[Rfam]
The family of this 95-nucleotide RNA sequence from endosymbiont of Tevnia jerichonana is "Glycine riboswitch aptamer". It scores 46 bits against the family's covariance model.
RNA sequence: CGGGUCGACUCUGGAGAGCGGUCAUGAGACCCACCGACGGGGCAGGGGCCGGUAAGCCGGUUUCAAACUCUCAGGUUUUGGACAGAGGGGCGGCG
Number, nucleotide and partner (000 for none) at each position: 001c000002g000003g000004g000005u000006c090007g000008a000009c087010u086011c085012u084013g083014g000015a000016g000017a000018g000019c000020g031021g030022u029023c028024a000025u000026g000027a000028g023029a022030c021031c020032c000033a076034c075035c074036g072037a071038c000039g000040g070041g069042g068043c000044a000045g000046g063047g062048g061049c060050c059051g058052g057053u000054a000055a000056g000057c052058c051059g050060g049061u048062u047063u046064c000065a000066a000067a000068c042069u041070c040071u037072c036073a000074g035075g034076u033077u000078u000079u000080g000081g000082a000083c013084a012085g011086a010087g009088g000089g000090g006091c000092g000093g000094c000095g000